[Rfam]
RNA sequence: GGGGGAGUACGUUCGCAAGAGUGAAACUUAAAGAAAUUGACGGAAUGGCACCACAAGACGUGGAGCGUGCGGUUUAAUUUGACUCAACACGGGGAACUUUACCAGAUCCGGACAGGGGGAGGAUUGACAGAUUGAGUGUUCUUUCUCGAUUCCCUGAAUGGUGGUGCAUGGCCGCUUUUGGUCGGUGGAGUGAUUUGUUUGGUUGAUUCCGUCAACGGACGAGAUCCAAGCUGCCCAGUAGCGCCCCGGAUUAGACACAGGACAGCCAUCUCGCCGGCGGGUUCUCCCCAACGGCGAGCGUCAUCCGGUCGGGCGCUUCUCUGCGGGAUUCCCUGCUUUUUGCGCAGGGUGAGAUUUUGGGCAACAGCAGGUCUGUGAUGCUCCUCAAUGUUCUGGGCGACACGCGCACUACAAUGUCAGUGAGAACAAGAAAAACGACGUCCGUCGGACCUGCCUGAUCAAAAGGGCGGGGAAUCCACGGAAUCACGUAGACCCACUUGGGACCGAGGAUUGCAAUUAUUGGUCGCGCAACGAGGAAUGUCUCGUAGGCGCAGCUCAUCAAACUGUGCCGAUUACGUCCCUGCCAUUUGUACACA
Number, nucleotide and partner (000 for none) at each position: 001g000002g029003g028004g027005g000006a000007g000008u000009a000010c000011g022012u021013u020014c019015g000016c000017a000018a000019g014020a013021g012022u011023g000024a000025a000026a000027c004028u003029u002030a000031a000032a000033g000034a000035a000036a000037u000038u594039g593040a591041c590042g589043g000044a588045a587046u586047g585048g584049c583050a582051c000052c000053a578054c577055a000056a000057g542058a541059c540060g539061u538062g412063g000064a410065g409066c000067g407068u406069g405070c404071g403072g401073u400074u000075u000076a000077a000078u093079u092080u091081g090082a000083c000084u000085c000086a000087a000088c000089a000090c081091g080092g079093g078094g000095a000096a000097c000098u000099u000100u000101a000102c396103c395104a394105g393106a392107u000108c390109c000110g000111g000112a000113c156114a155115g154116g153117g152118g000119g000120a000121g000122g000123a000124u000125u000126g145127a144128c000129a142130g141131a140132u000133u000134g000135a000136g000137u000138g000139u000140u131141c130142u129143u000144u127145c126146u000147c000148g000149a000150u000151u000152c117153c116154c115155u114156g113157a000158a000159u000160g384161g383162u000163g382164g381165u380166g379167c000168a000169u378170g376171g372172c371173c370174g368175c367176u366177u000178u000179u000180g000181g220182u219183c218184g000185g216186u215187g196188g195189a194190g000191u000192g000193a000194u189195u188196u187197g000198u000199u000200u211201g210202g209203u000204u000205g000206a000207u000208u000209c202210c201211g200212u000213c000214a000215a186216c185217g000218g183219a182220c181221g000222a000223g000224a000225u000226c360227c359228a358229a357230g000231c326232u325233g324234c323235c000236c000237a320238g000239u000240a317241g316242c315243g314244c313245c312246c311247c000248g000249g000250a000251u000252u000253a000254g000255a000256c000257a000258c000259a000260g000261g000262a000263c000264a000265g000266c000267c000268a000269u000270c000271u000272c000273g000274c000275c000276g000277g000278c000279g000280g000281g000282u000283u000284c000285u000286c000287c000288c000289c000290a000291a000292c000293g000294g000295c000296g000297a000298g000299c000300g000301u000302c000303a000304u000305c000306c000307g000308g000309u000310c000311g246312g245313g244314c243315g242316c241317u240318u000319c000320u237321c000322u000323g234324c233325g232326g231327g000328a000329u351330u000331c349332c348333c347334u346335g345336c344337u000338u000339u000340u000341u000342g000343c000344g336345c335346a334347g333348g332349g331350u000351g329352a000353g000354a000355u000356u000357u229358u228359g227360g226361g000362c000363a000364a000365c000366a176367g175368c174369a000370g173371g172372u171373c000374u000375g000376u170377g000378a169379u166380g165381c164382u163383c161384c160385u000386c000387a000388a000389u000390g108391u000392u106393c105394u104395g103396g102397g000398c000399g000400a073401c072402a000403c071404g070405c069406g068407c067408a000409c065410u064411a000412c062413a000414a000415u000416g493417u492418c491419a000420g489421u488422g487423a000424g000425a000426a000427c000428a000429a000430g476431a000432a000433a000434a000435a000436c000437g000438a000439c000440g000441u000442c000443c000444g000445u000446c000447g000448g000449a000450c471451c470452u000453g000454c467455c466456u465457g000458a000459u464460c000461a000462a000463a000464a459465g456466g455467g454468c000469g000470g451471g450472g000473a000474a000475u000476c430477c000478a000479c000480g000481g000482a000483a000484u000485c000486a000487c422488g421489u420490a000491g418492a417493c416494c000495c000496a000497c000498u000499u000500g532501g000502g000503a000504c528505c526506g525507a524508g000509g000510a521511u000512u000513g000514c000515a000516a000517u000518u000519a000520u000521u510522g000523g000524u507525c506526g505527c000528g504529c000530a000531a000532c500533g000534a000535g000536g000537a000538a061539u060540g059541u058542c057543u000544c000545g000546u000547a000548g570549g569550c568551g567552c566553a565554g564555c000556u000557c000558a000559u000560c000561a000562a000563a000564c554565u553566g552567u551568g550569c549570c548571g000572a000573u000574u000575a000576c000577g054578u053579c000580c000581c000582u050583g049584c048585c047586a046587u045588u044589u042590g041591u040592a000593c039594a038595c000596a000
A member of the RNA family "Eukaryotic small subunit ribosomal RNA" from Strigomonas culicis, 596 nucleotides of a longer RNA. It scores 1255 bits against the family's covariance model. The source organism's lineage runs through Eukaryota, Discoba, Metakinetoplastina, Trypanosomatida and Strigomonas. A reference for the family is Cannone et al. (2002), "The comparative RNA web (CRW) site: an online database of comparative sequence and structure information for ribosomal, intron, and other RNAs", BMC Bioinformatics.